Group II catalytic intron D1-D4-6: a 251-nucleotide RNA from Clostridium magnum. Taxonomically the source falls in Clostridium magnum (Bacteria, Bacillati, Clostridia, Clostridiaceae). Group II introns are found in rRNA, tRNA and mRNA of organelles in fungi, plants and protists, and also in mRNA in bacteria.
RNA sequence: GAACUCCUGUCAAGGUAAGGUUUACCAAAUCGCCUUGUAUCGAGUCUUGGAGGUGUUGCGGUAACGUAACAUUUUAAGCGUAGACAGAAAGCUAGCGAGGUAGAAUUGACUGGGUGGUAACCUAGCAGUGAAUGGUAUUGAGCUUCGAAAAUCGGUUGGAUGAUGUGGCAGAAACGUUCACGUACGUGGAAAGCAACAGUUAUUUGUGCGUUAAUGCGAGUGCAAAUAAACACAUCCGGGUUCAGAUAUCC
Numbered sequence: 001g002a003a004c005u006c007c008u009g010u011c012a013a014g015g016u017a018a019g020g021u022u023u024a025c026c027a028a029a030u031c032g033c034c035u036u037g038u039a040u041c042g043a044g045u046c047u048u049g050g051a052g053g054u055g056u057u058g059c060g061g062u063a064a065c066g067u068a069a070c071a072u073u074u075u076a077a078g079c080g081u082a083g084a085c086a087g088a089a090a091g092c093u094a095g096c097g098a099g100g101u102a103g104a105a106u107u108g109a110c111u112g113g114g115u116g117g118u119a120a121c122c123u124a125g126c127a128g129u130g131a132a133u134g135g136u137a138u139u140g141a142g143c144u145u146c147g148a149a150a151a152u153c154g155g156u157u158g159g160a161u162g163a164u165g166u167g168g169c170a171g172a173a174a175c176g177u178u179c180a181c182g183u184a185c186g187u188g189g190a191a192a193g194c195a196a197c198a199g200u201u202a203u204u205u206g207u208g209c210g211u212u213a214a215u216g217c218g219a220g221u222g223c224a225a226a227u228a229a230a231c232a233c234a235u236c237c238g239g240g241u242u243c244a245g246a247u248a249u250c251c
Base pairs, nucleotide, nucleotide: 012036013035014034015033019031020030021029022028023219026216038090040088041087044085045084046083047082048080049079050075051074052073053072054071055070056069057068058067059066060065139245140243142242144240145239146238147237162236163235164234165233166232167231168194169193174187175186176185200229201228202227203226204225205224206223207222208221209220